[Rfam]
RNA sequence: GCGGUACCGGUUCCCGCCCGCGCCCACACCGGUGUGCGGAAGGCGCGUGAGUGCCCCUCGGCACGAUACGAAUGGCGACCCGGCGACC
Numbered sequence: 001g002c003g004g005u006a007c008c009g010g011u012u013c014c015c016g017c018c019c020g021c022g023c024c025c026a027c028a029c030c031g032g033u034g035u036g037c038g039g040a041a042g043g044c045g046c047g048u049g050a051g052u053g054c055c056c057c058u059c060g061g062c063a064c065g066a067u068a069c070g071a072a073u074g075g076c077g078a079c080c081c082g083g084c085g086a087c088c
Stems, first nucleotide, its partner, number of pairs: 003088003007083004015077004020069001
RNA: L31-Actinobacteria ribosomal protein leader